[Rfam]
RNA sequence: AUGCAUCUAUUUGACAGGCCUGAAGCAGUUACUGUCUGCUAAGGUUUCCACUACAGAGGCAAGAAAAAAGUGUCCUUCUGCUUUCUGUCUGUGAUUGUGGCAGCCCAGAUUGAAUGGGGGAAUACAGGG
Dot-bracket structure: .(((.(((...((..(((((...(((((.......)))))..))))).))....))).)))...........((((((..(..((((.((((.......))))..))))..)...))))))........
The record is a 129-nucleotide RNA from Physeter macrocephalus, which matches "Small nucleolar RNA SNORA31" in Rfam. Gene Ontology terms of the family: RNA processing and nucleolus. It scores 69 bits against the family's covariance model. Rfam describes the family as follows. ACA31 (SNORA31) belongs to the H/ACA class of snoRNAs which are thought to guide the sites of modification of uridines to pseudouridines. ACA31 is predicted to guide the pseudouridylation of U3713 in 28S rRNA and U218 in 18S rRNA. This family includes the mouse homologue snoMBI-161. The base pairs follow the family's consensus structure, which was predicted with RNAalifold. The literature on the family includes a 2001 paper in EMBO J by Huttenhofer et al., "RNomics: an experimental approach that identifies 201 candidates for novel, small, non-messenger RNAs in mouse". Rfam 15.1 lists 2,094 matches to the family in 626 species. Taxonomically the source falls in Physeter (Eukaryota, Bilateria, Euteleostomi, Whippomorpha).